[Rfam]
RNA sequence: GAGAUAUGAUGAGGUUUAAUUGGUCCGUGUUUCUGAUUCAACAGUGGCAGACAAAUUUUUUUACCAAAUCUGAUCUC
Numbered sequence: 001g002a003g004a005u006a007u008g009a010u011g012a013g014g015u016u017u018a019a020u021u022g023g024u025c026c027g028u029g030u031u032u033c034u035g036a037u038u039c040a041a042c043a044g045u046g047g048c049a050g051a052c053a054a055a056u057u058u059u060u061u062u063a064c065c066a067a068a069u070c071u072g073a074u075c076u077c
Stems, first nucleotide, its partner, number of pairs: 001077004

Annotation:
A member of the RNA family "Small nucleolar RNA SNORD18" from Gossypium mustelinum, 77 nucleotides long. The family is grouped with related families in Rfam's "SNORD18 clan". Gene Ontology terms of the family: RNA processing and nucleolus. The match comes from Rfam's covariance-model search (42 bits). For this family Rfam cites "Two different snoRNAs are encoded in introns of amphibian and human L1 ribosomal protein genes" (Prislei et al., Nucleic Acids Res, 1993).